RNA sequence: AAAUCGUGGAGACCAGAAACCACUAAAUAAACGAGGCGUCACUGAAAAGCCAUACGAGUAGGAAAUUA
Numbered sequence: 001a002a003a004u005c006g007u008g009g010a011g012a013c014c015a016g017a018a019a020c021c022a023c024u025a026a027a028u029a030a031a032c033g034a035g036g037c038g039u040c041a042c043u044g045a046a047a048a049g050c051c052a053u054a055c056g057a058g059u060a061g062g063a064a065a066u067u068a
Stems, first nucleotide, its partner, number of pairs: 006023004035051003042062002
A member of the RNA family "DUF805 RNA" from Flavivirga rizhaonensis, 68 nucleotides long. Lineage of the source: Bacteria > Pseudomonadati > Bacteroidota > Flavobacteriales > Flavivirga. A search with the family's covariance model found it, with a score of 82 bits. Pairs were carried over by alignment from the consensus structure, which is taken from published work. By type it is a cis-regulatory element.